[Rfam]
RNA sequence: AAUAAUGAUGAUUUAACUUUGGAAUCUCGUUCGUCUGAAAUCCUGAUGAUAGAUCUCUUUCUGAUGUUA
Numbered sequence: 001a002a003u004a005a006u007g008a009u010g011a012u013u014u015a016a017c018u019u020u021g022g023a024a025u026c027u028c029g030u031u032c033g034u035c036u037g038a039a040a041u042c043c044u045g046a047u048g049a050u051a052g053a054u055c056u057c058u059u060u061c062u063g064a065u066g067u068u069a
Stems, first nucleotide, its partner, number of pairs: 025053003029050001032048004